Rfam assigns this 44-nucleotide RNA from Priestia megaterium to the family "PreQ1 (pre queuosine) riboswitch aptamer". NCBI's taxonomy places the organism under Bacteria, Bacillati, Bacilli, Caryophanales, Priestia megaterium. The literature on the family includes a 2004 paper in J Biol Chem by Reader et al., "Identification of four genes necessary for biosynthesis of the modified nucleoside queuosine". Rfam's curators write: This family is a bacterial riboswitch that binds to the metabolite preQ1, an intermediate in the biosynthesis of the modified nucleoside queuosine from GTP. One example of this riboswitch is located in the leader of the Bacillus subtilis ykvJKLM (queCDEF) operon which encodes four genes necessary for queuosine production. PreQ1 binding to the riboswitch aptamer is thought to induce premature transcription termination within the leader to down-regulate expression of these genes. It scores 50 bits against the family's covariance model.

[Rfam]
RNA sequence: ACGGGAGAGGUUCGAAAACUCCCUCUAUAAAAAACUAAGAUCAU
Dot-bracket structure: .....(((((.....[.....))))).........]........